Record summary: The family of this 117-nucleotide RNA from Anaerococcus prevotii is "FMN riboswitch aptamer (RFN element)".
[Rfam]
RNA sequence: GAUUAUCUUCAGGGAAAGGUGAAAUUCCUUAACCGGCAGUAGAGUCUGCGAGUCCUACGGGAUUGAAUUGGUGUGAUUCCAAUACCGACAGUAUAGUCUGGAUGAAAGAAGAUUUAU
Number, nucleotide and partner (000 for none) at each position: 001g000002a000003u000004u000005a113006u112007c111008u110009u109010c108011a000012g000013g000014g000015a000016a000017a029018g028019g027020u000021g000022a000023a000024a000025u000026u000027c019028c018029u017030u000031a000032a097033c096034c087035g086036g049037c048038a047039g046040u000041a000042g000043a000044g085045u084046c039047u038048g037049c036050g000051a000052g063053u062054c061055c000056u000057a000058c000059g000060g000061g054062a053063u052064u000065g000066a000067a083068u082069u081070g080071g079072u000073g000074u000075g000076a000077u000078u000079c071080c070081a069082a068083u067084a045085c044086c035087g034088a000089c100090a099091g098092u000093a000094u000095a000096g033097u032098c091099u090100g089101g000102a000103u000104g000105a000106a000107a000108g010109a009110a008111g007112a006113u005114u000115u000116a000117u000

The family's consensus secondary structure is taken from published work.
Lineage of the source: Bacteria > Bacillota > Tissierellales > Peptoniphilaceae > Anaerococcus prevotii.